[Rfam]
RNA: Bacterial large signal recognition particle RNA
RNA sequence: UCGUGCUAGACGGGGUGUUAGCGGUACCUUGUUGCCCGCAAUCCGCUAUAGCGGGGUUGAAUCCCCUUAUUAGGGAUUGUAGGGUCUGGUCUGCCCCCGGCAAGUGAUGUUGAUAAUUUGGUCCUGCGCAAUGGAAUGCUGUGAACCCCGUCAGGUCAGGAAUGAAGCAGCGGUAAGCGGAUUUUUUCAUGUGCCGCAGGUAAUCCGGGUUUGAGUUAACUACCAGGGUAACGCGGGUCUUGCUUUUUCGAGUAAGGGUGCACGA
Numbered sequence: 001u002c003g004u005g006c007u008a009g010a011c012g013g014g015g016u017g018u019u020a021g022c023g024g025u026a027c028c029u030u031g032u033u034g035c036c037c038g039c040a041a042u043c044c045g046c047u048a049u050a051g052c053g054g055g056g057u058u059g060a061a062u063c064c065c066c067u068u069a070u071u072a073g074g075g076a077u078u079g080u081a082g083g084g085u086c087u088g089g090u091c092u093g094c095c096c097c098c099g100g101c102a103a104g105u106g107a108u109g110u111u112g113a114u115a116a117u118u119u120g121g122u123c124c125u126g127c128g129c130a131a132u133g134g135a136a137u138g139c140u141g142u143g144a145a146c147c148c149c150g151u152c153a154g155g156u157c158a159g160g161a162a163u164g165a166a167g168c169a170g171c172g173g174u175a176a177g178c179g180g181a182u183u184u185u186u187u188c189a190u191g192u193g194c195c196g197c198a199g200g201u202a203a204u205c206c207g208g209g210u211u212u213g214a215g216u217u218a219a220c221u222a223c224c225a226g227g228g229u230a231a232c233g234c235g236g237g238u239c240u241u242g243c244u245u246u247u248u249c250g251a252g253u254a255a256g257g258g259u260g261c262a263c264g265a
Stems, first nucleotide, its partner, number of pairs: 001265006009058003012030008035055005064258007073249004079243010092230002096227002099224002104220002106217003115211007123200006129191002132189005139180004148173004156165003